[Rfam]
RNA sequence: CUUCACCGAGCCCAGCCACAGGGUCUGUCCCGACGGCUGUUCCCGGCCGUAGGUGGCGAGCAGUGCCUGUGCCUC
Numbered sequence: 001c002u003u004c005a006c007c008g009a010g011c012c013c014a015g016c017c018a019c020a021g022g023g024u025c026u027g028u029c030c031c032g033a034c035g036g037c038u039g040u041u042c043c044c045g046g047c048c049g050u051a052g053g054u055g056g057c058g059a060g061c062a063g064u065g066c067c068u069g070u071g072c073c074u075c
Stems, first nucleotide, its partner, number of pairs: 014026002017023001031071002038065002043060001047056003
Dot-bracket structure: .............((.(.....).))....((.....((...(...(((....)))...)...))....))....

ASpks TB sRNA: a 75-nucleotide RNA from Streptomycetaceae bacterium MP113-05. Taxonomically the source falls in Streptomycetaceae (Bacteria, Bacillati, Actinomycetota, Kitasatosporales). A reference for the family is Arnvig and Young (2009), "Identification of small RNAs in Mycobacterium tuberculosis", Mol Microbiol.